This 62-nucleotide RNA sequence from Fischerella thermalis belongs to the Rfam family "Nitrogen stress-induced RNA 1".
The pairing is the family consensus, mapped onto this sequence.
The match comes from Rfam's covariance-model search (49 bits).
RNA sequence: UGGUAGAUGCACCCUGAUAACAAACUCCCCUUGCUAGCUGUCGGCUAUCGGGGGAUUUUUUG
Dot-bracket structure: .(((......)))..............((((((.(((.......))).))))))........